[Rfam]
RNA sequence: CCGCCCGUCGCUCCUACCGAUCGAGUGAUCCGGUGAAUUAUUCGGACCGUGGCUUUUCCGAUUCGUCGGUUUUGCCUAGGGAAGUUUUGUGAACCUUAUCACUUAAAGGAAGGAGAAGUCGUAACAAGGUUUCCGUAGGUGAACCUGCGGAAGGAUCAUUC
Number, nucleotide and partner (000 for none) at each position: 001c128002c000003g125004c000005c000006c121007g120008u000009c118010g000011c115012u114013c113014c112015u111016a000017c109018c108019g000020a000021u105022c000023g104024a103025g102026u101027g100028a099029u098030c000031c000032g095033g094034u093035g000036a000037a090038u089039u000040a087041u000042u000043c084044g000045g000046a000047c080048c079049g000050u000051g076052g075053c074054u000055u000056u000057u000058c069059c068060g067061a066062u000063u000064c000065g000066u061067c060068g059069g058070u000071u000072u000073u000074g053075c052076c051077u000078a000079g048080g047081g000082a000083a000084g043085u000086u000087u040088u000089g038090u037091g000092a000093a034094c033095c032096u000097u000098a029099u028100c027101a026102c025103u024104u023105a021106a000107a000108g018109g017110a000111a015112g014113g013114a012115g011116a000117a000118g009119u000120c007121g006122u000123a000124a000125c003126a000127a000128g001129g000130u153131u152132u151133c150134c149135g148136u147137a146138g145139g144140u000141g000142a000143a000144c139145c138146u137147g136148c135149g134150g133151a132152a131153g130154g000155a000156u000157c000158a000159u000160u000161c000
RNA: Eukaryotic small subunit ribosomal RNA, nucleotides 1559 to 1719
Organism: Babesia sp. Xinjiang